[Rfam]
RNA sequence: GCACCCCAUGGCUCAGGUCCGCCGCAUCUCCUGACGAGUGGGGUUUGCCGGUCGGCGCUGGCGAAAGUGGCCUCCUCGUUCCGCUGUCAGCACCGGCCGGCACCCUC
Numbered sequence: 001g002c003a004c005c006c007c008a009u010g011g012c013u014c015a016g017g018u019c020c021g022c023c024g025c026a027u028c029u030c031c032u033g034a035c036g037a038g039u040g041g042g043g044u045u046u047g048c049c050g051g052u053c054g055g056c057g058c059u060g061g062c063g064a065a066a067g068u069g070g071c072c073u074c075c076u077c078g079u080u081c082c083g084c085u086g087u088c089a090g091c092a093c094c095g096g097c098c099g100g101c102a103c104c105c106u107c
Base pairs, nucleotide, nucleotide: 003044004043005042006041007040008039009038013034014033015032016031017030046102047101048100049099050098051097052096053095054094055093
The family of this 107-nucleotide RNA from Mesorhizobium denitrificans is "EcpR1". The match comes from Rfam's covariance-model search (68 bits). The base pairs follow the family's consensus structure, which was predicted with WAR. A reference for the family is Schluter et al. (2010), "A genome-wide survey of sRNAs in the symbiotic nitrogen-fixing alpha-proteobacterium Sinorhizobium meliloti", BMC Genomics. Rfam classes the family as a small RNA. From the family's description: Perviously named SmelC291, SmrC10, or Sra33. According to its overproduction phenotype it was renamed Elongated Cell Phenotype RNA1. Induced by stress,EcpR1 negatively regulates cell cycle master regulatory genes dnaA and gcrA at post-transcriptional level by base pairing between its strongly conserved GC-rich loop and the target mRNAs. It's regulation is hfq-independent but requires RNase E to regulate dnaA.